[Rfam]
RNA sequence: CCUGCCACUGUACCUGUUCUGCACCCCGUGGCUGGUACUUUCCAGUGGUGAGCUGAGAGGAAGCCCAGCCCAGGAAGCAGCCCUUCCCUGCUUGUGGGGAGGACUGUGCCGAAAGGUUGGGAACAAGU
Numbered sequence: 001c002c003u004g005c006c007a008c009u010g011u012a013c014c015u016g017u018u019c020u021g022c023a024c025c026c027c028g029u030g031g032c033u034g035g036u037a038c039u040u041u042c043c044a045g046u047g048g049u050g051a052g053c054u055g056a057g058a059g060g061a062a063g064c065c066c067a068g069c070c071c072a073g074g075a076a077g078c079a080g081c082c083c084u085u086c087c088c089u090g091c092u093u094g095u096g097g098g099g100a101g102g103a104c105u106g107u108g109c110c111g112a113a114a115g116g117u118u119g120g121g122a123a124c125a126a127g128u
Stems, first nucleotide, its partner, number of pairs: 005048006018035002021032001022030002064121004069115001073110002078106003082102002086098003

Rfam assigns this 128-nucleotide RNA from Rhinopomastus cyanomelas to the family "Small nucleolar RNA SNORA65".
Rfam describes the family as follows. U65 belongs to the H/ACA class of snoRNAs which are thought to guide the sites of modification of uridines to pseudouridines.
Pairs were carried over by alignment from the consensus structure, which was predicted with RNAalifold.
Rfam 15.1 lists 1,089 matches to the family in 619 species.
Taxonomically the source falls in Rhinopomastus (Eukaryota, Vertebrata, Gnathostomata, Tetrapoda).
For this family Rfam cites "RNomics: an experimental approach that identifies 201 candidates for novel, small, non-messenger RNAs in mouse" (Huttenhofer et al., EMBO J, 2001).
It is annotated as an H/ACA-box small nucleolar RNA.
It scores 98 bits against the family's covariance model.